RNA sequence: AUGACUAAAAAACCACGAGGGCCCGGUAUAAACCGGGCUAUCUAUAUG
Number, nucleotide and partner (000 for none) at each position: 001a000002u000003g000004a000005c000006u000007a000008a000009a000010a000011a000012a000013c000014c000015a000016c000017g042018a041019g000020g039021g038022c037023c036024c035025g034026g000027u000028a000029u000030a000031a000032a000033c000034c025035g024036g023037g022038c021039u020040a000041u018042c017043u000044a000045u000046a000047u000048g000
A member of the RNA family "Flavivirus capsid hairpin cHP" from Orthoflavivirus japonicum, 48 nucleotides long. The sequence is in the family's curated seed alignment. cHP is a conserved RNA hairpin structure identified within the capsid coding region of several Flavivirus genomes. These positive strand RNA genomes are translated as a single polypeptide and subsequently cleaved into constituent proteins, the first of which is the capsid protein. Lineage of the source: Viruses > Kitrinoviricota > Flasuviricetes > Flaviviridae > Orthoflavivirus japonicum.